[Rfam]
The family of this 75-nucleotide RNA sequence from Candidatus Protofrankia datiscae is "ASpks TB sRNA".
The literature on the family includes a 2009 paper in Mol Microbiol by Arnvig and Young, "Identification of small RNAs in Mycobacterium tuberculosis".
RNA sequence: CUUCAGCGAGCCCAGCCAGCAGGGCUGCUCCGCCGGCCGCUGCUGGCCGUAGGUGGCCAGCAGCGCCUGGGCCUC
Numbered sequence: 001c002u003u004c005a006g007c008g009a010g011c012c013c014a015g016c017c018a019g020c021a022g023g024g025c026u027g028c029u030c031c032g033c034c035g036g037c038c039g040c041u042g043c044u045g046g047c048c049g050u051a052g053g054u055g056g057c058c059a060g061c062a063g064c065g066c067c068u069g070g071g072c073c074u075c
Base pairs, nucleotide, nucleotide: 014026015025016024017023031071033069038065039064043060044059045058047056048055049054
Dot-bracket structure: .............((((.....))))....(.(....((...(((.(((....))).)))...))...).)....